[Rfam]
RNA: A. fumigatus snoRNA Afu_263
Organism: Paecilomyces variotii
Nucleotides: 095
Base pairs, nucleotide, nucleotide: 006019008018009017010016032060033059034058035057036056042053043052044051045050
Number, partner (000 for none) and nucleotide at each position: 001000c002000u003000c004000a005000a006019u007000g008018a009017u010016g011000a012000u013000c014000a015000c016010c017009a018008u019006a020000u021000u022000c023000a024000u025000a026000a027000g028000c029000a030000u031000a032060g033059u034058u035057c036056a037000c038000c039000u040000g041000a042053g043052g044051u045050c046000u047000u048000c049000g050045g051044a052043u053042c054000g055000c056036u057035g058034a059033a060032c061000g062000a063000c064000a065000a066000a067000c068000a069000u070000a071000u072000a073000c074000c075000a076000u077000c078000u079000u080000u081000c082000g083000c084000u085000c086000c087000u088000a089000u090000c091000u092000g093000a094000a095000a